[Rfam]
RNA sequence: GCCUUCUUGUCGGGGUGCCUUAAAAAGCACCGAGCGCAUAUCGGUUCGCCGAUGUUCUGCUCGGUCAUUUGAGGGGCUGAGAUCAAACCCGUUGAACCUGAUCCGGUUAGUACCGGUGUAGGAAACCGAGAUAUGUCCCAUA
Numbered sequence: 001g002c003c004u005u006c007u008u009g010u011c012g013g014g015g016u017g018c019c020u021u022a023a024a025a026a027g028c029a030c031c032g033a034g035c036g037c038a039u040a041u042c043g044g045u046u047c048g049c050c051g052a053u054g055u056u057c058u059g060c061u062c063g064g065u066c067a068u069u070u071g072a073g074g075g076g077c078u079g080a081g082a083u084c085a086a087a088c089c090c091g092u093u094g095a096a097c098c099u100g101a102u103c104c105g106g107u108u109a110g111u112a113c114c115g116g117u118g119u120a121g122g123a124a125a126c127c128g129a130g131a132u133a134u135g136u137c138c139c140a141u142a
Base pairs, nucleotide, nucleotide: 006130007129008128009127011091012090013089014088016085017077018076019075020074021073097122098121099120100119103116104115105114106113
RNA: TPP riboswitch aptamer (THI element)
Organism: Marinobacterium aestuarii